About this RNA: A member of the RNA family "Ribosomal protein L10 leader" from Isobaculum melis, 127 nucleotides long.
RNA sequence: UAGGUUAAUUAAAUAUUACCGAAGACAGUAGGUGGCGCAAGCCUUAAUCUCCUACCGAGGAUACUAUGUGAAAAACAUAAAUCAACCCUCUAUGUCUACGGUGACAUGAGGUUUUUUGUUUAUUCAA
Numbered sequence: 001u002a003g004g005u006u007a008a009u010u011a012a013a014u015a016u017u018a019c020c021g022a023a024g025a026c027a028g029u030a031g032g033u034g035g036c037g038c039a040a041g042c043c044u045u046a047a048u049c050u051c052c053u054a055c056c057g058a059g060g061a062u063a064c065u066a067u068g069u070g071a072a073a074a075a076c077a078u079a080a081a082u083c084a085a086c087c088c089u090c091u092a093u094g095u096c097u098a099c100g101g102u103g104a105c106a107u108g109a110g111g112u113u114u115u116u117u118g119u120u121u122a123u124u125c126a127a
Base pairs, nucleotide, nucleotide: 028055029054030053031052032051034043035042036041087111088110089109091108092107093106094105095104096103

Its family is annotated with regulation of gene expression in the Gene Ontology. Pairs were carried over by alignment from the consensus structure, which was predicted with CMfinder. It scores 78 bits against the family's covariance model. The source organism's lineage runs through Bacteria, Bacillota, Lactobacillales, Carnobacteriaceae and Isobaculum.